[Rfam]
The family of this 170-nucleotide RNA from Streptomyces alkaliterrae is "c-di-AMP riboswitch aptamer (ydaO/yuaA leader)". It scores 45 bits against the family's covariance model. The organism belongs to Streptomyces, within Bacteria.
RNA sequence: AGUCUCGAAGCGGCGGGAGCGGGGGAACCAGGUACGUGCCGUGCCGCGGAGGUCCGCAGGCCGGCUUGGGGUGAAGCCACGCCCCGAAGCGCCGUGCGCGCUACGGGAGUGGCCGGGCAACUCCAGCCCGAAUCCGACAGCUCACCUCGCAGGCGUAGGAGAGGACACAC
Numbered sequence: 001a002g003u004c005u006c007g008a009a010g011c012g013g014c015g016g017g018a019g020c021g022g023g024g025g026a027a028c029c030a031g032g033u034a035c036g037u038g039c040c041g042u043g044c045c046g047c048g049g050a051g052g053u054c055c056g057c058a059g060g061c062c063g064g065c066u067u068g069g070g071g072u073g074a075a076g077c078c079a080c081g082c083c084c085c086g087a088a089g090c091g092c093c094g095u096g097c098g099c100g101c102u103a104c105g106g107g108a109g110u111g112g113c114c115g116g117g118c119a120a121c122u123c124c125a126g127c128c129c130g131a132a133u134c135c136g137a138c139a140g141c142u143c144a145c146c147u148c149g150c151a152g153g154c155g156u157a158g159g160a161g162a163g164g165a166c167a168c169a170c
Stems, first nucleotide, its partner, number of pairs: 003018005019150006029068005069135003077112004115129004